[Rfam]
RNA sequence: GACAGAGGGAGCCCGACUCCCGUGCCUCCGGCAUGAGGAAAGUCCCCCCACCGGCCGGACGGGCGACCGGGCUCACGCCCGGAGUCGGAGACGGCUGGCUCUGGAACAGCAACGACACCCCCCGCCCCGACCCAUGAUUCGCGUUCGGUCGCUUCGGCGACCGGCGGCGUUCGCGGGUGACCCCGCGAACGAGCGAACCGACCCGCAAGGGGAGGGAGUUAACCCGAGGAGGGCGCGUGGCUUUGCCACGUUGGCGUGGCUUUGCCACGUUGGCGUGGCUUUGCCACGUUACAGACGGGCGGGAACGGAUGGAACGGCGAAUCCUCGCCGGUGCAAGUCCGCGCCACACAGGUAGUCCGGCCACGCGCGGACGCUCAGCCGAAUGUCGGGACGAACCGAAGGGGGCUUACUCCCCUCAGUC
Numbered sequence: 001g002a003c004a005g006a007g008g009g010a011g012c013c014c015g016a017c018u019c020c021c022g023u024g025c026c027u028c029c030g031g032c033a034u035g036a037g038g039a040a041a042g043u044c045c046c047c048c049c050a051c052c053g054g055c056c057g058g059a060c061g062g063g064c065g066a067c068c069g070g071g072c073u074c075a076c077g078c079c080c081g082g083a084g085u086c087g088g089a090g091a092c093g094g095c096u097g098g099c100u101c102u103g104g105a106a107c108a109g110c111a112a113c114g115a116c117a118c119c120c121c122c123c124g125c126c127c128c129g130a131c132c133c134a135u136g137a138u139u140c141g142c143g144u145u146c147g148g149u150c151g152c153u154u155c156g157g158c159g160a161c162c163g164g165c166g167g168c169g170u171u172c173g174c175g176g177g178u179g180a181c182c183c184c185g186c187g188a189a190c191g192a193g194c195g196a197a198c199c200g201a202c203c204c205g206c207a208a209g210g211g212g213a214g215g216g217a218g219u220u221a222a223c224c225c226g227a228g229g230a231g232g233g234c235g236c237g238u239g240g241c242u243u244u245g246c247c248a249c250g251u252u253g254g255c256g257u258g259g260c261u262u263u264g265c266c267a268c269g270u271u272g273g274c275g276u277g278g279c280u281u282u283g284c285c286a287c288g289u290u291a292c293a294g295a296c297g298g299g300c301g302g303g304a305a306c307g308g309a310u311g312g313a314a315c316g317g318c319g320a321a322u323c324c325u326c327g328c329c330g331g332u333g334c335a336a337g338u339c340c341g342c343g344c345c346a347c348a349c350a351g352g353u354a355g356u357c358c359g360g361c362c363a364c365g366c367g368c369g370g371a372c373g374c375u376c377a378g379c380c381g382a383a384u385g386u387c388g389g390g391a392c393g394a395a396c397c398g399a400a401g402g403g404g405g406c407u408u409a410c411u412c413c414c415c416u417c418a419g420u421c
Stems, first nucleotide, its partner, number of pairs: 001421003005417005010411002012390006021035005040408003044405005049333004055359001057357002062329005067082005083096005097324002102320001104318001118308002121303007140288002337372008